Annotation: A member of the RNA family "mir-263 microRNA precursor family" from Laodelphax striatellus, 84 nucleotides long. Gene Ontology terms of the family: RISC complex and miRNA-mediated post-transcriptional gene silencing. A search with the family's covariance model found it, with a score of 62 bits.
RNA sequence: CGGCUACUAGCAAUGGCACUGGAAGAAUUCACGGGUGCACUCGGUGUUAGACCCGUGGUCUUUCGGUGUCGUAACCGGUAGCCG
Numbered sequence: 001c002g003g004c005u006a007c008u009a010g011c012a013a014u015g016g017c018a019c020u021g022g023a024a025g026a027a028u029u030c031a032c033g034g035g036u037g038c039a040c041u042c043g044g045u046g047u048u049a050g051a052c053c054c055g056u057g058g059u060c061u062u063u064c065g066g067u068g069u070c071g072u073a074a075c076c077g078g079u080a081g082c083c084g
Stems, first nucleotide, its partner, number of pairs: 003082006010075001013072006020065003023061001025060002029058006